[Rfam]
RNA: mir-181 microRNA precursor family
Organism: Salarias fasciatus
RNA sequence: CUGCCCCAGUGAACAUUCAACGCUGUCGGUGAGUUUGAGCUAAAUUGAAAAACCAUCGACCGUUGACUGUACCCUGUGGCCAG
Numbered sequence: 001c002u003g004c005c006c007c008a009g010u011g012a013a014c015a016u017u018c019a020a021c022g023c024u025g026u027c028g029g030u031g032a033g034u035u036u037g038a039g040c041u042a043a044a045u046u047g048a049a050a051a052a053c054c055a056u057c058g059a060c061c062g063u064u065g066a067c068u069g070u071a072c073c074c075u076g077u078g079g080c081c082a083g
Stems, first nucleotide, its partner, number of pairs: 001083003004079002007076002014069002017066006025060007033053004